[Rfam]
RNA sequence: UGGCUAGGCUGGGAGGUUAGGCGUCUCCUGUAACUUGAAAUCGCCUUUGCGAGAGCCGAAAACUUGGGGGCGGCAUAAGUUCCCAAAUUUCAUUCUUAAUUAGUAUGUCGACGUUUCGUCCUUUGGGGUAAGAUGGUAAGAGACUCUCUUUCUUAAGAAAGAGUCAAACUCUUUUCGUAUUUCGAAACCCGCCAGGCCCGGAAGGGAGCAACGGUAGAAUUUACUUCGACGCUCAAGGGGUAGCGGGGCUGAGUACUAAUUAAGGCAAAAUGAGAUUUGGUGCUUUUGUCCACCCCAAGGAAGCCA
Numbered sequence: 001u002g003g004c005u006a007g008g009c010u011g012g013g014a015g016g017u018u019a020g021g022c023g024u025c026u027c028c029u030g031u032a033a034c035u036u037g038a039a040a041u042c043g044c045c046u047u048u049g050c051g052a053g054a055g056c057c058g059a060a061a062a063c064u065u066g067g068g069g070g071c072g073g074c075a076u077a078a079g080u081u082c083c084c085a086a087a088u089u090u091c092a093u094u095c096u097u098a099a100u101u102a103g104u105a106u107g108u109c110g111a112c113g114u115u116u117c118g119u120c121c122u123u124u125g126g127g128g129u130a131a132g133a134u135g136g137u138a139a140g141a142g143a144c145u146c147u148c149u150u151u152c153u154u155a156a157g158a159a160a161g162a163g164u165c166a167a168a169c170u171c172u173u174u175u176c177g178u179a180u181u182u183c184g185a186a187a188c189c190c191g192c193c194a195g196g197c198c199c200g201g202a203a204g205g206g207a208g209c210a211a212c213g214g215u216a217g218a219a220u221u222u223a224c225u226u227c228g229a230c231g232c233u234c235a236a237g238g239g240g241u242a243g244c245g246g247g248g249c250u251g252a253g254u255a256c257u258a259a260u261u262a263a264g265g266c267a268a269a270a271u272g273a274g275a276u277u278u279g280g281u282g283c284u285u286u287u288g289u290c291c292a293c294c295c296c297a298a299g300g301a302a303g304c305c306a
Stems, first nucleotide, its partner, number of pairs: 001306005007057004011029007034053004063299007072290004077284001083280011095264012108251001113249007120239008128230002132227002135224001136175001138173005146163007179221001181219003189214003197206003
RNA: Archaeal signal recognition particle RNA